The record is a 134-nucleotide sequence from Erpetoichthys calabaricus, which matches "U8 small nucleolar RNA" in Rfam.
The base pairs follow the family's consensus structure, which is taken from published work.
Gene Ontology terms of the family: RNA processing and nucleolus.
On this family, see Peculis et al., Gene 2001: "The U8 snoRNA gene family: identification and characterization of distinct, functional U8 genes in Xenopus".
RNA sequence: UCGUCAGUGAGGUAUAUCCUUACCUGUUCUUCCAGAAAUGGAAAAACAGAAAAUGAUGAAUGGGUGCAUAUGAUUCUAUGAUUAGAAUUGCCUGGUUCUUGAGGACACAACACCCUCGAGUAACUCAUUCUGAU
Numbered sequence: 001u002c003g004u005c006a007g008u009g010a011g012g013u014a015u016a017u018c019c020u021u022a023c024c025u026g027u028u029c030u031u032c033c034a035g036a037a038a039u040g041g042a043a044a045a046a047c048a049g050a051a052a053a054u055g056a057u058g059a060a061u062g063g064g065u066g067c068a069u070a071u072g073a074u075u076c077u078a079u080g081a082u083u084a085g086a087a088u089u090g091c092c093u094g095g096u097u098c099u100u101g102a103g104g105a106c107a108c109a110a111c112a113c114c115c116u117c118g119a120g121u122a123a124c125u126c127a128u129u130c131u132g133a134u
Stems, first nucleotide, its partner, number of pairs: 024049003028045001030043004072092001077087001079084001096123002098120007